Nucleotides: 180
Stems, first nucleotide, its partner, number of pairs: 008084005013026005027055004032050007056079007102178003107174003111170001113169002
Number, partner (000 for none) and nucleotide at each position: 001000a002000a003000a004000a005000a006000g007000g008084g009083c010082u011081u012080c013026u014025g015024u016023c017022g018000u019000g020000a021000g022017u023016g024015g025014c026013a027055c028054a029053c030052g031000u032050a033049g034048g035047g036046c037045a038044g039000c040000u041000c042000c043000a044038u045037u046036g047035c048034u049033c050032u051000u052030c053029g054028u055027g056079u057078g058077g059076a060075a061074u062073c063000g064000a065000c066000a067000u068000c069000a070000a071000g072000a073062g074061a075060u076059u077058u078057c079056g080012g081011a082010a083009g084008c085000a086000u087000a088000a089000u090000u091000u092000u093000u094000u095000g096000g097000u098000a099000c100000c101000c102178g103177g104176g105000c106000a107174g108173c109172u110000g111170g112000u113169g114168a115000u116000c117000g118000u119000u120000g121000g122000a123000a124000a125000a126000a127000a128000a129000a130000a131000a132000a133000a134000a135000a136000a137000a138000g139000a140000u141000c142000a143000g144000u145000u146000g147000g148000c149000u150000a151000u152000u153000u154000u155000g156000u157000g158000c159000a160000g161000g162000u163000u164000u165000a166000u167000u168114u169113c170111u171000g172109g173108g174107c175000u176104c177103c178102c179000c180000a
Source information:
The family of this 180-nucleotide RNA sequence from Panthera tigris is "U11 spliceosomal RNA". By type it is a spliceosomal small nuclear RNA. The family has 72 seed sequences and 2,595 matches in Rfam 15.1. The match comes from Rfam's covariance-model search (102 bits). The family's consensus secondary structure is taken from published work. Its family is annotated with mRNA 5'-splice site recognition, pre-mRNA 5'-splice site binding and U11 snRNP in the Gene Ontology.